[Rfam]
RNA sequence: GUUGCUUCUUGGUUGUGAACUCCCUCUAUUAAUGGGUGAGGGAUUGUUCAUGCUCCUAAGCAUAUAUUUAACAUGUCAGUUUUAGACAGCGUGCUGUCGACUUUAUUGCAUCGUUCUACCUUUCUGAUGCAACA
Numbered sequence: 001g002u003u004g005c006u007u008c009u010u011g012g013u014u015g016u017g018a019a020c021u022c023c024c025u026c027u028a029u030u031a032a033u034g035g036g037u038g039a040g041g042g043a044u045u046g047u048u049c050a051u052g053c054u055c056c057u058a059a060g061c062a063u064a065u066a067u068u069u070a071a072c073a074u075g076u077c078a079g080u081u082u083u084a085g086a087c088a089g090c091g092u093g094c095u096g097u098c099g100a101c102u103u104u105a106u107u108g109c110a111u112c113g114u115u116c117u118a119c120c121u122u123u124c125u126g127a128u129g130c131a132a133c134a
Base pairs, nucleotide, nucleotide: 003062004061005060006059007058016050017049018048019047020046021043022042023041024040025039075128076127077126078125088117089116092113093112095110096109

A member of the RNA family "small nucleolar RNA snoR137" from Sesamum indicum, 134 nucleotides long. The family's consensus secondary structure was predicted with RNAalifold. It scores 58 bits against the family's covariance model.